[Rfam]
RNA: RAGATH-18 RNA
RNA sequence: ACUGUGGAGUGUAUAAAAAUUGUUAGUAGUAUCUGGCUUUAUUCAGUACAAACGCAUACACAAUGAAGCAGUAA
Number, nucleotide and partner (000 for none) at each position: 001a072002c071003u070004g069005u068006g000007g000008a000009g061010u060011g059012u058013a057014u000015a000016a000017a000018a000019a000020u000021u056022g055023u054024u000025a000026g000027u000028a000029g049030u048031a047032u000033c000034u045035g044036g000037c000038u000039u000040u000041a000042u000043u000044c035045a034046g000047u031048a030049c029050a000051a000052a000053c000054g023055c022056a021057u013058a012059c011060a010061c009062a000063a000064u000065g000066a000067a000068g005069c004070a003071g002072u001073a000074a000